[Rfam]
Nucleotides: 086
Base pairs, nucleotide, nucleotide: 001086002085003084004083005082009077011075012074013073016040017039018038023035024034025033026032042071043070044069045068046067048065049064050063052061053060
Number, partner (000 for none) and nucleotide at each position: 001086c002085u003084g004083a005082c006000c007000a008000g009077g010000a011075c012074g013073c014000a015000u016040g017039g018038g019000u020000c021000g022000a023035c024034g025033u026032u027000c028000g029000u030000g031000c032026a033025a034024c035023g036000a037000g038018c039017c040016c041000c042071u043070c044069u045068c046067c047000u048065u049064a050063c051000a052061a053060c054000c055000u056000g057000a058000c059000g060053g061052u062000a063050g064049u065048a066000a067046g068045g069044a070043g071042a072000u073013g074012c075011g076000a077009c078000a079000a080000a081000a082005g083004u084003c085002a086001g
The record is an 86-nucleotide RNA sequence, which matches "L4-Archaeoglobi ribosomal protein leades" in Rfam. The sequence is in the family's curated seed alignment. Rfam classes the family as a cis-regulatory leader. The family's consensus secondary structure is taken from published work.